[Rfam]
Nucleotides: 231
Base pairs, nucleotide, nucleotide: 001032002031003030004029005028006027007026043071044070045069046068047067048066060177061176062175063174082162083161084160085159086158087157089156090155091154106141107140108139110133111132112131113130114129115128116127164223165222166221167220168219181212182211183210184209185208186207187206188205189204
Number, partner (000 for none) and nucleotide at each position: 001032a002031c003030c004029u005028a006027u007026u008000u009000g010000g011000a012000u013000u014000c015000a016000a017000g018000a019000u020000g021000u022000u023000u024000u025000g026007g027006a028005u029004a030003g031002g032001u033000g034000u035000g036000u037000c038000a039000u040000c041000c042000c043071g044070c045069u046068a047067u048066c049000g050000a051000c052000c053000a054000a055000g056000g057000a058000u059000u060177u061176c062175c063174u064000g065000a066048g067047a068046u069045a070044g071043c072000c073000a074000g075000c076000g077000a078000a079000c080000g081000a082162a083161c084160u085159g086158a087157a088000c089156c090155c091154g092000a093000a094000a095000u096000g097000a098000c099000g100000u101000a102000a103000u104000a105000g106141g107140u108139c109000a110133c111132g112131a113130u114129g115128c116127u117000a118000c119000a120000g121000c122000u123000g124000c125000u126000a127116g128115g129114c130113a131112u132111u133110g134000a135000g136000u137000a138000a139108g140107g141106c142000c143000a144000a145000a146000u147000g148000a149000u150000a151000a152000u153000a154091c155090g156089g157087u158086u159085u160084a161083g162082u163000g164223u165222g166221u167220g168219c169000c170000a171000c172000u173000g174063a175062g176061g177060a178000g179000g180000a181212u182211g183210u184209u185208u186207u187206a188205a189204g190000a191000g192000u193000c194000u195000g196000c197000a198000a199000a200000u201000g202000a203000c204189c205188u206187u207186a208185g209184a210183g211182c212181a213000c214000u215000a216000a217000a218000g219168g220167c221166a222165c223164a224000g225000c226000g227000u228000a229000g230000g231000g